[Rfam]
Rfam assigns this 60-nucleotide sequence from Herbaspirillum sp. SJZ107 to the family "Betaproteobacteria toxic small RNA". Overexpression in amino aid rich medium attenuates growth, suggesting role in repressing amino acid intake and metabolism. The family has 51 seed sequences and 951 matches in Rfam 15.1. The base pairs follow the family's consensus structure, which was predicted with WAR. For this family Rfam cites "A vast collection of microbial genes that are toxic to bacteria" (Kimelman et al., Genome Res, 2012).
RNA sequence: UGUCUCCUCUAUUCUCCACAAGGAAUAGAUUCAAGCCCGCUCUCGAGCGGGCUUUUUUUU
Numbered sequence: 001u002g003u004c005u006c007c008u009c010u011a012u013u014c015u016c017c018a019c020a021a022g023g024a025a026u027a028g029a030u031u032c033a034a035g036c037c038c039g040c041u042c043u044c045g046a047g048c049g050g051g052c053u054u055u056u057u058u059u060u
Stems, first nucleotide, its partner, number of pairs: 008029006014022001034053008